[Rfam]
RNA: ZMP/ZTP riboswitch aptamer (pfl RNA motif)
Organism: Cryobacterium sp. SO1
RNA sequence: UGGCCGGGUCGCGACUGGCGUAGCACGAAAGAUGGGUCACCAUCGGGGAGCGACUAGACACGGUUAGUGACCGCACGCCUGGGCCACGACA
Numbered sequence: 001u002g003g004c005c006g007g008g009u010c011g012c013g014a015c016u017g018g019c020g021u022a023g024c025a026c027g028a029a030a031g032a033u034g035g036g037u038c039a040c041c042a043u044c045g046g047g048g049a050g051c052g053a054c055u056a057g058a059c060a061c062g063g064u065u066a067g068u069g070a071c072c073g074c075a076c077g078c079c080u081g082g083g084c085c086a087c088g089a090c091a
Stems, first nucleotide, its partner, number of pairs: 003059001005057001007055006015047002017079005032043004068086002071083002